Fluoride riboswitch aptamer (crcB RNA motif): a 61-nucleotide RNA from Thermanaerothrix daxensis. The match comes from Rfam's covariance-model search (34 bits). Pairs were carried over by alignment from the consensus structure, which is taken from published work.

RNA sequence: AUACUUGGUGGCGAUGAGGCUCGCCGUAAGUGUCGGUAUGACUAAUAGCCUCUACUUGAAC
Numbered sequence: 001a002u003a004c005u006u007g008g009u010g011g012c013g014a015u016g017a018g019g020c021u022c023g024c025c026g027u028a029a030g031u032g033u034c035g036g037u038a039u040g041a042c043u044a045a046u047a048g049c050c051u052c053u054a055c056u057u058g059a060a061c
Stems, first nucleotide, its partner, number of pairs: 010025004016052006032042003

On this family, see Baker et al., Science 2012: "Widespread genetic switches and toxicity resistance proteins for fluoride".